[Rfam]
Overview:
A member of the RNA family "L17 ribosomal protein downstream element" from Granulicatella sp. WM01, 68 nucleotides long. Pairs were carried over by alignment from the consensus structure, which is taken from published work. A search with the family's covariance model found it, with a score of 52 bits.
RNA sequence: UGAGUGUUAUGAUGAUGACAUCGUUAUGUUUAGUCUAGCUCACCGUAGAGUCGCUUGCGACUCUACGG
Numbered sequence: 001u002g003a004g005u006g007u008u009a010u011g012a013u014g015a016u017g018a019c020a021u022c023g024u025u026a027u028g029u030u031u032a033g034u035c036u037a038g039c040u041c042a043c044c045g046u047a048g049a050g051u052c053g054c055u056u057g058c059g060a061c062u063c064u065a066c067g068g
Base pairs, nucleotide, nucleotide: 002041003040004039005038011035012034013033017030018029019028020027021026043068044067045066046065047064048063049062050061051060